MIR168 microRNA precursor family: a 103-nucleotide sequence from Panicum miliaceum. The source organism's lineage runs through Eukaryota, Poales, Panicodae, Panicum and Panicum sect. Panicum. Its family is annotated with RISC complex and miRNA-mediated post-transcriptional gene silencing in the Gene Ontology. A reference for the family is Jagadeeswaran et al. (2009), "Cloning and characterization of small RNAs from Medicago truncatula reveals four novel legume-specific microRNA families", New Phytol.
RNA sequence: CGCCGCGCCGCCUCGGGCUCGCUUGGUGCAGAUCGGGACCCGACGCCCGCGCCGCCGGGACGGAUCCCGCCUUGCACCAAGUGAAUCGGAGCCGGCGCAGCAA
Numbered sequence: 001c002g003c004c005g006c007g008c009c010g011c012c013u014c015g016g017g018c019u020c021g022c023u024u025g026g027u028g029c030a031g032a033u034c035g036g037g038a039c040c041c042g043a044c045g046c047c048c049g050c051g052c053c054g055c056c057g058g059g060a061c062g063g064a065u066c067c068c069g070c071c072u073u074g075c076a077c078c079a080a081g082u083g084a085a086u087c088g089g090a091g092c093c094g095g096c097g098c099a100g101c102a103a
Stems, first nucleotide, its partner, number of pairs: 013090002017086001019084002023080009034069005040063002